[Rfam]
RNA: Small nucleolar RNA SNORA3/SNORA45 family
RNA sequence: AUCGAGGCUAGAGUCAUGCUUGGGUAUUGGCUAUUGUAUUAGUAUGCUAGAGUCCUCGAAGAAUGACUGCUGACCUUAUUCACUGGCUGUGGGCCUCAUGGCACAGUCAGGCACCAGGUUAGUGACAAGG
Numbered sequence: 001a002u003c004g005a006g007g008c009u010a011g012a013g014u015c016a017u018g019c020u021u022g023g024g025u026a027u028u029g030g031c032u033a034u035u036g037u038a039u040u041a042g043u044a045u046g047c048u049a050g051a052g053u054c055c056u057c058g059a060a061g062a063a064u065g066a067c068u069g070c071u072g073a074c075c076u077u078a079u080u081c082a083c084u085g086g087c088u089g090u091g092g093g094c095c096u097c098a099u100g101g102c103a104c105a106g107u108c109a110g111g112c113a114c115c116a117g118g119u120u121a122g123u124g125a126c127a128a129g130g
Stems, first nucleotide, its partner, number of pairs: 002059005007053003012048002015046006024037003070122007083110004088105004